This 252-nucleotide part of an RNA from Candidatus Undinarchaeum marinum belongs to the Rfam family "Archaeal large subunit ribosomal RNA". A search with the family's covariance model found it, with a score of 2696 bits. For this family Rfam cites "Crystal structure of the ribosome at 5.5 A resolution" (Yusupov et al., Science, 2001).
RNA sequence: GAGUUUGUCUAUAUGGCAAGGAUAACCGCAAGGGUAUCCAUAGCGAAAGCAAAAGUCCGCAGCUUCGGCGAGGGACUGAGUAUACAAGUGCUCGAAGUCAUAUGGACCAUACCAGAAGCCAGUCGAUCUAUGCCUGGGCAGAGUGAAGUCUCUCGAAAGGGGGAUGGAGGCUCGUUACCGGUUCUGAUCCUAUUCGUUCGGGUGACCUGGGUAUAGGGGCGAAAUACCAAUCGAGACUGGUAAUAGCUGGUU
Number, nucleotide and partner (000 for none) at each position: 001g000002a000003g000004u000005u109006u000007g107008u106009c105010u104011a103012u102013a101014u100015g099016g098017c097018a000019a000020g039021g038022a037023u036024a000025a000026c033027c032028g000029c000030a000031a000032g027033g026034g000035u000036a023037u022038c021039c020040a000041u000042a000043g050044c049045g000046a000047a000048a000049g044050c043051a000052a000053a000054a000055g076056u075057c074058c073059g000060c000061a000062g069063c068064u000065u000066c000067g000068g063069c062070g000071a000072g000073g058074g057075a056076c055077u000078g000079a092080g091081u090082a089083u000084a000085c000086a000087a000088g000089u082090g081091c080092u079093c000094g000095a000096a000097g017098u016099c015100a014101u013102a012103u011104g010105g009106a008107c007108c000109a005110u000111a000112c250113c249114a000115g247116a000117a000118g000119c240120c239121a238122g237123u236124c235125g000126a000127u000128c216129u215130a214131u213132g212133c211134c210135u209136g208137g207138g206139c204140a000141g173142a172143g171144u170145g000146a000147a000148g165149u164150c163151u162152c161153u160154c159155g000156a000157a000158a000159g154160g153161g152162g151163g150164a149165u148166g000167g000168a000169g000170g144171c143172u142173c141174g000175u000176u000177a000178c201179c200180g199181g198182u000183u000184c196185u000186g195187a194188u000189c000190c000191u000192a000193u000194u187195c186196g184197u000198u181199c180200g179201g178202g000203u000204g139205a000206c138207c137208u136209g135210g134211g133212u132213a131214u130215a129216g128217g000218g228219g227220c000221g000222a000223a000224a000225u000226a000227c219228c218229a000230a000231u000232c000233g000234a000235g124236a123237c122238u121239g120240g119241u000242a000243a000244u000245a000246g000247c115248u000249g113250g112251u000252u000